[Rfam]
RNA sequence: GGAAUUCUGGAAAGCUACCAAGUAGCACCGAAGGAGCAAUAUCCGUCUAUUAGUUGAAGGGUUACAAUUUCAGCAAAUAGAGUAUAAGAUAGAAUCUCUCAGGUAAAGAUACAGGAUAAGAAGG
Numbered sequence: 001g002g003a004a005u006u007c008u009g010g011a012a013a014g015c016u017a018c019c020a021a022g023u024a025g026c027a028c029c030g031a032a033g034g035a036g037c038a039a040u041a042u043c044c045g046u047c048u049a050u051u052a053g054u055u056g057a058a059g060g061g062u063u064a065c066a067a068u069u070u071c072a073g074c075a076a077a078u079a080g081a082g083u084a085u086a087a088g089a090u091a092g093a094a095u096c097u098c099u100c101a102g103g104u105a106a107a108g109a110u111a112c113a114g115g116a117u118a119a120g121a122a123g124g
Stems, first nucleotide, its partner, number of pairs: 004117006015025004027104003030100002034098003040091004

Notes:
This 124-nucleotide RNA sequence from Vallitalea pronyensis belongs to the Rfam family "Glycine riboswitch aptamer". A search with the family's covariance model found it, with a score of 42 bits. The organism belongs to Vallitalea, within Bacteria. Gene Ontology term of the family: glycine biosynthetic process.